RNA sequence: ACCACGCCUAGCCCGACGGGGCGAAAGGCCGGACCACCUUCACCGGCUUGGCGUGGCGGCUUUAUGAAGG
Numbered sequence: 001a002c003c004a005c006g007c008c009u010a011g012c013c014c015g016a017c018g019g020g021g022c023g024a025a026a027g028g029c030c031g032g033a034c035c036a037c038c039u040u041c042a043c044c045g046g047c048u049u050g051g052c053g054u055g056g057c058g059g060c061u062u063u064a065u066g067a068a069g070g
Base pairs, nucleotide, nucleotide: 002056003055004054005053006052007051008050011022012021013020014019028047029046030045031044032043037070038069039068040067041066
A member of the RNA family "int-alpA RNA" from Solimonas marina, 70 nucleotides long. From the family's description: Acidobacteria (1 example), Planctomycetes (1 example), Proteobacteria. It scores 59 bits against the family's covariance model. By type it is a small RNA. NCBI's taxonomy places the organism under Bacteria, Gammaproteobacteria, Nevskiales, Nevskiaceae, Solimonas.